[Rfam]
Rfam assigns this 309-nucleotide RNA from Coniochaeta pulveracea to the family "Group I catalytic intron". Lineage of the source: Eukaryota > Ascomycota > saccharomyceta > leotiomyceta > Coniochaeta. Group I catalytic introns are large self-splicing ribozymes. They catalyse their own excision from mRNA, tRNA and rRNA precursors in a wide range of organisms. The core secondary structure consists of 9 paired regions (P1-P9). These fold to essentially two domains - the P4-P6 domain (formed from the stacking of P5, P4, P6 and P6a helices) and the P3-P9 domain (formed from the P8, P3, P7 and P9 helices).
RNA sequence: CAAAAGGCGAAGUGAACCUUCGUCUAGUCUUAUAUAAGGCGAAACUCUCAAAUUGCGGGAAACUCUUAAAAACAAAUCUACCAAGUUAAUAUAGUAAUAUAAUUAAUGGAACAGGUAAUGACUCGUUGUAAGGUAAAAACGAUUUGUAUAUAUAGAAUAUCCGCAGCCAAGCACCAAGUACUCUAAGGAAUAACGGUGUGCAGUUCAUCGACUAAAUGUGAGUUGGUUUUUUAUUAAUAUGUUGACUCGGGUGGUAAGGAUAUUAAUAAUUAGCUUAAGAUAUAGUCAGGCUCAAUAUAUGAAUAUUGG
Numbered sequence: 001c002a003a004a005a006g007g008c009g010a011a012g013u014g015a016a017c018c019u020u021c022g023u024c025u026a027g028u029c030u031u032a033u034a035u036a037a038g039g040c041g042a043a044a045c046u047c048u049c050a051a052a053u054u055g056c057g058g059g060a061a062a063c064u065c066u067u068a069a070a071a072a073c074a075a076a077u078c079u080a081c082c083a084a085g086u087u088a089a090u091a092u093a094g095u096a097a098u099a100u101a102a103u104u105a106a107u108g109g110a111a112c113a114g115g116u117a118a119u120g121a122c123u124c125g126u127u128g129u130a131a132g133g134u135a136a137a138a139a140c141g142a143u144u145u146g147u148a149u150a151u152a153u154a155g156a157a158u159a160u161c162c163g164c165a166g167c168c169a170a171g172c173a174c175c176a177a178g179u180a181c182u183c184u185a186a187g188g189a190a191u192a193a194c195g196g197u198g199u200g201c202a203g204u205u206c207a208u209c210g211a212c213u214a215a216a217u218g219u220g221a222g223u224u225g226g227u228u229u230u231u232u233a234u235u236a237a238u239a240u241g242u243u244g245a246c247u248c249g250g251g252u253g254g255u256a257a258g259g260a261u262a263u264u265a266a267u268a269a270u271u272a273g274c275u276u277a278a279g280a281u282a283u284a285g286u287c288a289g290g291c292u293c294a295a296u297a298u299a300u301g302a303a304u305a306u307u308g309g
Stems, first nucleotide, its partner, number of pairs: 003033001043224005049218002054165006064156003166204002171199004179192002182189002208288001210287005226274003231269006294307005